Shown here is a 119-nucleotide RNA sequence from Phyllostomus discolor, a member of the family "Small nucleolar RNA SNORA61".
Pairs were carried over by alignment from the consensus structure, which was predicted with PFOLD.
The source organism's lineage runs through Eukaryota, Theria, Laurasiatheria, Phyllostomidae and Phyllostomus.
ACA61 is a member of the H/ACA class of snoRNA that guide the sites of modification of uridines to pseudouridines.
It scores 95 bits against the family's covariance model.
[Rfam]
RNA sequence: ACCCUCCGGUUCCCUUUCCCAUCAGAUCUGAACUCCGGUGUUAGGGUCGUAAGAGGAGGGAAAGUAACAAUGAACCUGGCCUCACAGCUCUGUAGCAUGUGGGCUGGUUUCGAACAAGG
Numbered sequence: 001a002c003c004c005u006c007c008g009g010u011u012c013c014c015u016u017u018c019c020c021a022u023c024a025g026a027u028c029u030g031a032a033c034u035c036c037g038g039u040g041u042u043a044g045g046g047u048c049g050u051a052a053g054a055g056g057a058g059g060g061a062a063a064g065u066a067a068c069a070a071u072g073a074a075c076c077u078g079g080c081c082u083c084a085c086a087g088c089u090c091u092g093u094a095g096c097a098u099g100u101g102g103g104c105u106g107g108u109u110u111c112g113a114a115c116a117a118g119g
Stems, first nucleotide, its partner, number of pairs: 003059005019046002022044001026039003076107007091097002